[Rfam]
RNA sequence: CGGCGGGCCACGGCCUCCCAACGGGCCGCGACCCAUCCGCGAGGAUGGGAGAG
Numbered sequence: 001c002g003g004c005g006g007g008c009c010a011c012g013g014c015c016u017c018c019c020a021a022c023g024g025g026c027c028g029c030g031a032c033c034c035a036u037c038c039g040c041g042a043g044g045a046u047g048g049g050a051g052a053g
Stems, first nucleotide, its partner, number of pairs: 011028006033048006
This 53-nucleotide RNA sequence from a Rhodospirillaceae bacterium belongs to the Rfam family "serC leader". For this family Rfam cites "Evidence for a second class of S-adenosylmethionine riboswitches and other regulatory RNA motifs in alpha-proteobacteria" (Corbino et al., Genome Biol, 2005). This family is a putative regulatory RNA structure that is found upstream of the serC-serA operon in some alpha-proteobacteria. The final stem of the structure overlaps the ribosome binding site of the serC reading frame. The family's RNA type in Rfam is cis-regulatory leader. The base pairs follow the family's consensus structure.